[Rfam]
RNA sequence: GCGAUGAGCUAAAUUGCAUAAGACGAGAUUGACGCGCCUUUCGGCAAAGCACAAUGUGGAGUGCUGUCUCUCGCCGCAAUACGCGAAAAAACUAAGGAAUCCCUAUAGGGACCCUUAGUU
Numbered sequence: 001g002c003g004a005u006g007a008g009c010u011a012a013a014u015u016g017c018a019u020a021a022g023a024c025g026a027g028a029u030u031g032a033c034g035c036g037c038c039u040u041u042c043g044g045c046a047a048a049g050c051a052c053a054a055u056g057u058g059g060a061g062u063g064c065u066g067u068c069u070c071u072c073g074c075c076g077c078a079a080u081a082c083g084c085g086a087a088a089a090a091a092c093u094a095a096g097g098a099a100u101c102c103c104u105a106u107a108g109g110g111a112c113c114c115u116u117a118g119u120u
Base pairs, nucleotide, nucleotide: 014079015078016077017076024073025072026071027070028069031068032067033066036045037044048065049064051062052061090120091119092118093117094116095115096114097113

The record is a 120-nucleotide RNA from Anaerobacillus arseniciselenatis, which matches "BsrF" in Rfam. The family's consensus secondary structure was predicted with WAR. The match comes from Rfam's covariance-model search (72 bits). Taxonomically the source falls in Anaerobacillus (Bacteria, Bacillati, Bacillota, Bacilli).